[Rfam]
Record summary
The family of this 192-nucleotide RNA sequence from Streptomyces sp. TLI_235 is "c-di-AMP riboswitch aptamer (ydaO/yuaA leader)". Its family is annotated with cyclic-di-AMP binding and regulation of gene expression in the Gene Ontology. Lineage of the source: Bacteria > Bacillati > Actinomycetota > Kitasatosporales > Streptomyces.
RNA sequence: GCAAGCGAAACGCACUUCGGCAGGGGCGGGGGAACCAGGUAAGUCGCCCGGGAGCGGUCCAGCGCCGCUCCCCGGCUUGGGGUGAAGCCGCGCGCGCGGAAACGGCGAGAGAUCGCCGGAAUCCGUGCGUGCGGCCGGGCAACUCCAGCCCGAAUCCGACAGCUCACCUCGCAGGCGUGGGAGAGGAACGCU
Numbered sequence: 001g002c003a004a005g006c007g008a009a010a011c012g013c014a015c016u017u018c019g020g021c022a023g024g025g026g027c028g029g030g031g032g033a034a035c036c037a038g039g040u041a042a043g044u045c046g047c048c049c050g051g052g053a054g055c056g057g058u059c060c061a062g063c064g065c066c067g068c069u070c071c072c073c074g075g076c077u078u079g080g081g082g083u084g085a086a087g088c089c090g091c092g093c094g095c096g097c098g099g100a101a102a103c104g105g106c107g108a109g110a111g112a113u114c115g116c117c118g119g120a121a122u123c124c125g126u127g128c129g130u131g132c133g134g135c136c137g138g139g140c141a142a143c144u145c146c147a148g149c150c151c152g153a154a155u156c157c158g159a160c161a162g163c164u165c166a167c168c169u170c171g172c173a174g175g176c177g178u179g180g181g182a183g184a185g186g187a188a189c190g191c192u
Base pairs, nucleotide, nucleotide: 005176006175011025013023026172027171028170029169030168031167036079037078038077039076040075080157081156082155088134089133090132091131092130093129094128095127096126097125098124099123100122137151138150139149140148